[Rfam]
RNA sequence: AGAUUUCUUCGGGGCAGGGUGUAAUUCCCGACCGACGGUGACAACCCUUGGGUUGAAGUCCGUGACCCGCGUGAGCGGUGGACCUGGUGUGAGUCCGGGACCGACAGUAAAGUCUGGAUGGUAGAAGAAGAAA
Numbered sequence: 001a002g003a004u005u006u007c008u009u010c011g012g013g014g015c016a017g018g019g020u021g022u023a024a025u026u027c028c029c030g031a032c033c034g035a036c037g038g039u040g041a042c043a044a045c046c047c048u049u050g051g052g053u054u055g056a057a058g059u060c061c062g063u064g065a066c067c068c069g070c071g072u073g074a075g076c077g078g079u080g081g082a083c084c085u086g087g088u089g090u091g092a093g094u095c096c097g098g099g100a101c102c103g104a105c106a107g108u109a110a111a112g113u114c115u116g117g118a119u120g121g122u123a124g125a126a127g128a129a130g131a132a133a
Base pairs, nucleotide, nucleotide: 004130005129006128007127008126009125010124017029018028019027031113032112033103034102035063036062037061038060058101059100067078068077083099084098085097086096087095105116106115107114

A member of the RNA family "FMN riboswitch aptamer (RFN element)" from Agrilactobacillus composti, 133 nucleotides long.
Pairs were carried over by alignment from the consensus structure, which is taken from published work.
It scores 111 bits against the family's covariance model.
The organism belongs to Agrilactobacillus composti, within Bacteria.